[Rfam]
RNA sequence: UUCUUAUCCAGAGAGGUGGAGGGAUUUGGCCCUUUGAAGCCUCGGCAGCAGACCUGUUAUAGGAACUGUGCCACAUCCAACAAGCAGAUGCUUGGAAGAUAAGAA
Numbered sequence: 001u002u003c004u005u006a007u008c009c010a011g012a013g014a015g016g017u018g019g020a021g022g023g024a025u026u027u028g029g030c031c032c033u034u035u036g037a038a039g040c041c042u043c044g045g046c047a048g049c050a051g052a053c054c055u056g057u058u059a060u061a062g063g064a065a066c067u068g069u070g071c072c073a074c075a076u077c078c079a080a081c082a083a084g085c086a087g088a089u090g091c092u093u094g095g096a097a098g099a100u101a102a103g104a105a
Stems, first nucleotide, its partner, number of pairs: 001105008013043005021032003026080004044072004049068002053062001076097001081094005

A member of the RNA family "SAM riboswitch aptamer (S box leader)" from Peribacillus asahii, 105 nucleotides long. The base pairs follow the family's consensus structure, which is taken from published work. The source organism's lineage runs through Bacteria, Bacillati, Bacilli, Bacillaceae and Peribacillus. Rfam links the family to the GO term regulation of gene expression.